A member of the RNA family "Hepatitis C virus J7880 RNA", 123 nucleotides long. A reference for the family is Mauger et al. (2015), "Functionally conserved architecture of hepatitis C virus RNA genomes", Proc Natl Acad Sci U S A.
[Rfam]
Nucleotides: 123
Stems, first nucleotide, its partner, number of pairs: 006120005013113006022065004028057002032053001035050005068103004074097004078092003
Number, partner (000 for none) and nucleotide at each position: 001000g002000u003000u004000a005000a006120g007119c008118u009117c010116c011000g012000a013113g014112c015111a016110u017109c018108u019000c020000a021000a022065g023064u024063g025062a026000c027000g028057g029056c030000u031000a032053g033000g034000c035050u036049c037048c038047u039046c040000c041000c042000c043000g044000u045000u046039g047038a048037g049036g050035a051000a052000g053032c054000c055000u056029g057028u058000g059000a060000c061000c062025u063024c064023a065022c066000c067000c068103c069102c070101c071100c072000a073000c074097a075096c076095u077094c078092a079091g080090c081000u082000c083000g084000u085000u086000c087000a088000a089000a090080g091079u092078u093000u094077g095076g096075g097074u098000a099000c100071g101070g102069g103068g104000c105000a106000a107000a108018g109017g110016a111015u112014g113013u114000c115000c116010g117009g118008a119007g120006u121000c122000a123000u